[Rfam]
RNA sequence: UUUUAGCCCAGAUAGUAACGGAAAGCCUUUUGAGAAGAAAGGCUUAUUUUUCUUGAUAAAAAACAACGACCAACGGAAGUUCGUUUUUUGUUUAGAAAAAUUGCUUUUCUGAUUAAAAGCUUGUAGUGUAUAGCUGGAAAUGGC
Numbered sequence: 001u002u003u004u005a006g007c008c009c010a011g012a013u014a015g016u017a018a019c020g021g022a023a024a025g026c027c028u029u030u031u032g033a034g035a036a037g038a039a040a041g042g043c044u045u046a047u048u049u050u051u052c053u054u055g056a057u058a059a060a061a062a063a064c065a066a067c068g069a070c071c072a073a074c075g076g077a078a079g080u081u082c083g084u085u086u087u088u089u090g091u092u093u094a095g096a097a098a099a100a101u102u103g104c105u106u107u108u109c110u111g112a113u114u115a116a117a118a119g120c121u122u123g124u125a126g127u128g129u130a131u132a133g134c135u136g137g138a139a140a141u142g143g144c
Stems, first nucleotide, its partner, number of pairs: 009136003013132002018127002023122004029117002031112001033110006
About this RNA:
A member of the RNA family "Flavo-1 RNA" from Flavobacterium psychrophilum, 144 nucleotides long. Lineage of the source: Bacteria > Pseudomonadati > Flavobacteriales > Flavobacteriaceae > Flavobacterium psychrophilum.